[Rfam]
RNA: Small nucleolar RNA SNORD101
Organism: Gouania willdenowi
RNA sequence: GCAUACGUGAUGAUUUCCAUUCUUUUGUCGGAUACCCCUUCACUCCCUGAUGAGUGAGAUCUUUCUCUGACAUGC
Number, nucleotide and partner (000 for none) at each position: 001g075002c074003a073004u072005a000006c000007g000008u000009g000010a000011u000012g000013a000014u000015u000016u000017c000018c000019a000020u000021u000022c000023u000024u000025u000026u000027g000028u000029c000030g000031g000032a000033u000034a000035c000036c000037c000038c000039u000040u000041c000042a000043c000044u000045c000046c000047c000048u000049g000050a000051u000052g000053a000054g000055u000056g000057a000058g000059a000060u000061c000062u000063u000064u000065c000066u000067c000068u000069g000070a000071c000072a004073u003074g002075c001